[Rfam]
RNA sequence: GGAGGUGUUUGUGUUUUCUGACGUCUGUGAUGCCUUCUGAAACUGAUGAAUAUGAUCGCUGUAAACCACUCUUCGGUUGUGUUGAUCCUAGUCAGCAGUAAGGAGCGUCACACGGUAGAAAUAUCUGGUAUCUAUAGAAAUACUCCCGUUGCACGACUUGCGGUCGGACGCACGGUUGAGGACUACUGUGAUCCCAGCUCAGUCAAUUAAGCAAUAACUUCGGGAAUUAGUUUAAAUUGUUCCAGAACACUUCCAUGACCCAGAGCAUUGCCGAGCAAUUCGCUCAUUUUUUGU
Numbered sequence: 001g002g003a004g005g006u007g008u009u010u011g012u013g014u015u016u017u018c019u020g021a022c023g024u025c026u027g028u029g030a031u032g033c034c035u036u037c038u039g040a041a042a043c044u045g046a047u048g049a050a051u052a053u054g055a056u057c058g059c060u061g062u063a064a065a066c067c068a069c070u071c072u073u074c075g076g077u078u079g080u081g082u083u084g085a086u087c088c089u090a091g092u093c094a095g096c097a098g099u100a101a102g103g104a105g106c107g108u109c110a111c112a113c114g115g116u117a118g119a120a121a122u123a124u125c126u127g128g129u130a131u132c133u134a135u136a137g138a139a140a141u142a143c144u145c146c147c148g149u150u151g152c153a154c155g156a157c158u159u160g161c162g163g164u165c166g167g168a169c170g171c172a173c174g175g176u177u178g179a180g181g182a183c184u185a186c187u188g189u190g191a192u193c194c195c196a197g198c199u200c201a202g203u204c205a206a207u208u209a210a211g212c213a214a215u216a217a218c219u220u221c222g223g224g225a226a227u228u229a230g231u232u233u234a235a236a237u238u239g240u241u242c243c244a245g246a247a248c249a250c251u252u253c254c255a256u257g258a259c260c261c262a263g264a265g266c267a268u269u270g271c272c273g274a275g276c277a278a279u280u281c282g283c284u285c286a287u288u289u290u291u292u293g294u
Base pairs, nucleotide, nucleotide: 001254002253003252004251005250006249007248008247027111028110029109030108031107043098044097045096047094048093049092054087055086056085057084058082059081061080064077264284265283266282267279268278269277270276271275
RNA: Arthropod 7SK RNA